[Rfam]
RNA sequence: UAUCAGUUUAUGUUUGCUUCUUCUUUCCGUCUACUAGGCCUACUACUACUCGCAUCUUCUUUGCGCGGUACGCUGGUACACGGAGUUUAGAACUGACUUCACCGUCCCAGAUAAAAACCCGCGCACUGCGCGGGUUUUUUU
Numbered sequence: 001u002a003u004c005a006g007u008u009u010a011u012g013u014u015u016g017c018u019u020c021u022u023c024u025u026u027c028c029g030u031c032u033a034c035u036a037g038g039c040c041u042a043c044u045a046c047u048a049c050u051c052g053c054a055u056c057u058u059c060u061u062u063g064c065g066c067g068g069u070a071c072g073c074u075g076g077u078a079c080a081c082g083g084a085g086u087u088u089a090g091a092a093c094u095g096a097c098u099u100c101a102c103c104g105u106c107c108c109a110g111a112u113a114a115a116a117a118c119c120c121g122c123g124c125a126c127u128g129c130g131c132g133g134g135u136u137u138u139u140u141u
Stems, first nucleotide, its partner, number of pairs: 004104001006102002010098001014096003018092003027083004032078005044070004051065004114138011
This 141-nucleotide sequence from Biostraticola tofi belongs to the Rfam family "Leucine operon leader". It scores 88 bits against the family's covariance model. About the family: At least 6 amino acid operons are known to be regulated by attenuation. In each a leader sequence of 150-200 bp is found upstream of the first gene in the operon. This leader sequence can assume two different secondary structures known as the terminator and the anti-terminator structure. In each case the leader also codes for very short peptide sequence that is rich in the end product amino acid of the operon. The terminator structure is recognised as a termination signal for RNA polymerase and the operon is not transcribed. This structure forms when the cell has an excess of the regulatory amino acid and ribosome movement over the leader transcript is not impeded. When there is a deficiency of the charged tRNA of the regulatory amino acid the ribosome translating the leader peptide stalls and the antiterminator structure can form. This allows RNA polymerase to transcribe the operon. In the Rfam alignment the consensus structure is of the terminator. The alternative consensus structure is the antiterminator structure. For this family Rfam cites "Attenuation in amino acid biosynthetic operons" (Kolter and Yanofsky, Annu Rev Genet, 1982). By type it is a cis-regulatory leader.